[Rfam]
Nucleotides: 105
Stems, first nucleotide, its partner, number of pairs: 012037002017032006041098003046095003049090003
Number, partner (000 for none) and nucleotide at each position: 001000u002000c003000u004000c005000g006000a007000c008000a009000a010000a011000g012037g013036c014000a015000a016000a017032c018031c019030c020029u021028c022027c023000g024000c025000g026000a027022g028021g029020g030019g031018g032017g033000g034000a035000c036013g037012c038000a039000a040000a041098g042097c043096c044000c045000a046095c047094g048093g049090a050089a051088c052000u053000c054000c055000g056000c057000u058000g059000c060000u061000c062000c063000g064000c065000u066000c067000u068000u069000c070000u071000c072000u073000c074000a075000g076000g077000g078000c079000a080000g081000c082000a083000c084000g085000g086000a087000a088051g089050u090049u091000g092000g093048c094047c095046g096043g097042g098041c099000c100000a101000c102000c103000g104000a105000a
The family of this 105-nucleotide sequence from Deinococcus proteolyticus is "c-di-GMP-I riboswitch aptamer". The base pairs follow the family's consensus structure, which is taken from published work. Its family is annotated with cyclic-di-GMP binding in the Gene Ontology.